This 304-nucleotide sequence from Tuber borchii belongs to the Rfam family "A. fumigatus sRNA Afu_309". The family has 10 seed sequences and 663 matches in Rfam 15.1. The match comes from Rfam's covariance-model search (112 bits). The organism belongs to Tuber, within Eukaryota.
RNA sequence: UCCUUCUUUCAACAAACGGAUUUGUGCCUUCAGUCCUGCCCAUUGAUCCCAGCGGUUGAUGUGGUCCAGUUGCACUGUUGGCAGUUCGGCGAUUAAUGGAAGCGUUUAGUUUUAAAUAACACCCUGGCGUAAAUCCGCGUCGACAGAUCUGAGAUUAAUGACGUCUCUCUCGUUUCCUCAUCUUGAGUUCGUUUCCGGACUGAGCUCGGUGGGGAAGGAGGGAGGUAGUCGGGCGCCAUAUUCCAUCGCGUUGCAUAGAACGUCGUUCUUUGAUGUUUGGGCAAAACCAUGGCUGCAUACAUUU
Numbered sequence: 001u002c003c004u005u006c007u008u009u010c011a012a013c014a015a016a017c018g019g020a021u022u023u024g025u026g027c028c029u030u031c032a033g034u035c036c037u038g039c040c041c042a043u044u045g046a047u048c049c050c051a052g053c054g055g056u057u058g059a060u061g062u063g064g065u066c067c068a069g070u071u072g073c074a075c076u077g078u079u080g081g082c083a084g085u086u087c088g089g090c091g092a093u094u095a096a097u098g099g100a101a102g103c104g105u106u107u108a109g110u111u112u113u114a115a116a117u118a119a120c121a122c123c124c125u126g127g128c129g130u131a132a133a134u135c136c137g138c139g140u141c142g143a144c145a146g147a148u149c150u151g152a153g154a155u156u157a158a159u160g161a162c163g164u165c166u167c168u169c170u171c172g173u174u175u176c177c178u179c180a181u182c183u184u185g186a187g188u189u190c191g192u193u194u195c196c197g198g199a200c201u202g203a204g205c206u207c208g209g210u211g212g213g214g215a216a217g218g219a220g221g222g223a224g225g226u227a228g229u230c231g232g233g234c235g236c237c238a239u240a241u242u243c244c245a246u247c248g249c250g251u252u253g254c255a256u257a258g259a260a261c262g263u264c265g266u267u268c269u270u271u272g273a274u275g276u277u278u279g280g281g282c283a284a285a286a287c288c289a290u291g292g293c294u295g296c297a298u299a300c301a302u303u304u
Base pairs, nucleotide, nucleotide: 018150019149020148021147022146023145024144025143026082027081028080032076033075034074035072036069037068038067039064040063041061042060043059044058045057046056049054090142091141092140093139094137099130103126161226162225166223167222168221169220170219171218179211180210181209182208185207186206187205188204189203190202191200192199233296234295235293236292237291238290239289248282249281250278253276254275255274258268259267260266261265